[Rfam]
RNA sequence: AGUGCAGAAGAUCCUCGGCAGUUAACUGCAGCCGGAUUUGAGAAAAUUUCGGCAGUUAACUGCCGAAGAAAAC
Numbered sequence: 001a002g003u004g005c006a007g008a009a010g011a012u013c014c015u016c017g018g019c020a021g022u023u024a025a026c027u028g029c030a031g032c033c034g035g036a037u038u039u040g041a042g043a044a045a046a047u048u049u050c051g052g053c054a055g056u057u058a059a060c061u062g063c064c065g066a067a068g069a070a071a072a073c
Stems, first nucleotide, its partner, number of pairs: 012069002015066015

The family of this 73-nucleotide RNA sequence from Medicago truncatula is "MIR2629 microRNA precursor family". The base pairs follow the family's consensus structure, which was predicted with RNAalifold.